[Rfam]
RNA: Alphacoronavirus 3'UTR
RNA sequence: UCUAUGCAUGAUGGCAUGAUCAGAGCUGCUUUUAACUAACAUGAUCCCUUGCUUCGGCUUGACAAGGAUCUAGUCUUAUACACAAUGGUAAGCCAGUAGUAGUAGAGGUAUAAGAAAUUUGCUACUAUGUUACUGAACCUAGGUGAACACUAGUAUAACUCAUUACAUAUGUGCUGGAGUAAUUAAAGAUCGCUUUGACGAGCCAACAAUGGAAGAGCCAGUCAUUUGUCUUGAGACCUAUCUAGUUAGUAACUGCUAAUGGAACGGUUUCGAUAUGGAUACAC
Numbered sequence: 001u002c003u004a005u006g007c008a009u010g011a012u013g014g015c016a017u018g019a020u021c022a023g024a025g026c027u028g029c030u031u032u033u034a035a036c037u038a039a040c041a042u043g044a045u046c047c048c049u050u051g052c053u054u055c056g057g058c059u060u061g062a063c064a065a066g067g068a069u070c071u072a073g074u075c076u077u078a079u080a081c082a083c084a085a086u087g088g089u090a091a092g093c094c095a096g097u098a099g100u101a102g103u104a105g106a107g108g109u110a111u112a113a114g115a116a117a118u119u120u121g122c123u124a125c126u127a128u129g130u131u132a133c134u135g136a137a138c139c140u141a142g143g144u145g146a147a148c149a150c151u152a153g154u155a156u157a158a159c160u161c162a163u164u165a166c167a168u169a170u171g172u173g174c175u176g177g178a179g180u181a182a183u184u185a186a187a188g189a190u191c192g193c194u195u196u197g198a199c200g201a202g203c204c205a206a207c208a209a210u211g212g213a214a215g216a217g218c219c220a221g222u223c224a225u226u227u228g229u230c231u232u233g234a235g236a237c238c239u240a241u242c243u244a245g246u247u248a249g250u251a252a253c254u255g256c257u258a259a260u261g262g263a264a265c266g267g268u269u270u271c272g273a274u275a276u277g278g279a280u281a282c283a284c
Stems, first nucleotide, its partner, number of pairs: 075092005096128011132268004142254003149246005159235004167227001169225003173222005193202002203212002